[Rfam]
RNA sequence: GCGUCAGUUUAGCCAAGUGGUUACUUCCUCGUACGAAAACUAAUCCUGUGGUCCGCGGGCCACGGGGUUCAAACCACCGGCGAUGUCUGGCGUUUUG
Number, nucleotide and partner (000 for none) at each position: 001g000002c092003g091004u090005c089006a088007g087008u000009u000010u000011a000012g081013c080014c079015a000016a000017g077018u076019g075020g074021u000022u000023a000024c000025u073026u072027c000028c000029u000030c000031g000032u000033a000034c000035g000036a000037a000038a000039a000040c000041u000042a000043a000044u000045c000046c000047u000048g000049u000050g000051g000052u000053c000054c000055g000056c000057g000058g000059g000060c000061c000062a000063c000064g000065g000066g000067g000068u000069u000070c000071a000072a026073a025074c020075c019076a018077c017078c000079g014080g013081c012082g000083a000084u000085g000086u000087c007088u006089g005090g004091c003092g002093u000094u000095u000096u000097g000